[Rfam]
RNA sequence: CUAGCAAUGCCUUGAAAACACACAUGCACCGGCACAUGGUCCCGGGUGCCGUCGAGGGCUCGACGGUCGGAUCCAUGGGGUGCAUGGAGGCCUAAC
Numbered sequence: 001c002u003a004g005c006a007a008u009g010c011c012u013u014g015a016a017a018a019c020a021c022a023c024a025u026g027c028a029c030c031g032g033c034a035c036a037u038g039g040u041c042c043c044g045g046g047u048g049c050c051g052u053c054g055a056g057g058g059c060u061c062g063a064c065g066g067u068c069g070g071a072u073c074c075a076u077g078g079g080g081u082g083c084a085u086g087g088a089g090g091c092c093u094a095a096c
Stems, first nucleotide, its partner, number of pairs: 023086008035077005040071003048067005
RNA: t44 RNA